[Rfam]
Source information
ZMP/ZTP riboswitch aptamer (pfl RNA motif): an 89-nucleotide sequence from Kribbella flavida. Its family is annotated with regulation of purine nucleotide biosynthetic process and one-carbon metabolic process in the Gene Ontology. It scores 53 bits against the family's covariance model.
RNA sequence: CCGGCGGGCCGCUACUGGCGUUCAGGUGGAGCACCACCGGGGACCGGCCCGCCGGAGUACCGGCUGAGCCGCGCGCCUGGGCACGACGA
Numbered sequence: 001c002c003g004g005c006g007g008g009c010c011g012c013u014a015c016u017g018g019c020g021u022u023c024a025g026g027u028g029g030a031g032c033a034c035c036a037c038c039g040g041g042g043a044c045c046g047g048c049c050c051g052c053c054g055g056a057g058u059a060c061c062g063g064c065u066g067a068g069c070c071g072c073g074c075g076c077c078u079g080g081g082c083a084c085g086a087c088g089a
Stems, first nucleotide, its partner, number of pairs: 003053009015041002017077005026037004066084001068082003
The organism belongs to Kribbella flavida, within Bacteria.